[Rfam]
RNA sequence: GUGCCGUGAUGUUAACUGUCAACACAUCAUUCUGAAGAAGAGUUGUGUGGAGACCUUCAGAAACUGAGCACC
Numbered sequence: 001g002u003g004c005c006g007u008g009a010u011g012u013u014a015a016c017u018g019u020c021a022a023c024a025c026a027u028c029a030u031u032c033u034g035a036a037g038a039a040g041a042g043u044u045g046u047g048u049g050g051a052g053a054c055c056u057u058c059a060g061a062a063a064c065u066g067a068g069c070a071c072c
Stems, first nucleotide, its partner, number of pairs: 001071004
Small nucleolar RNA SNORD63: a 72-nucleotide sequence from Eurystomus gularis. The family's consensus secondary structure was predicted with PFOLD. From the family's description: snoRNA U63 is found in both humans and mice.